[Rfam]
RNA: Bacillaceae-1 RNA
RNA sequence: UACAAAUUUGAACGGCUAAAUACGCCACUUCCUGUGGCAACGCCGUUCUGAUCAACAUCCUGUUGG
Numbered sequence: 001u002a003c004a005a006a007u008u009u010g011a012a013c014g015g016c017u018a019a020a021u022a023c024g025c026c027a028c029u030u031c032c033u034g035u036g037g038c039a040a041c042g043c044c045g046u047u048c049u050g051a052u053c054a055a056c057a058u059c060c061u062g063u064u065g066g
Stems, first nucleotide, its partner, number of pairs: 010048007024038005052066005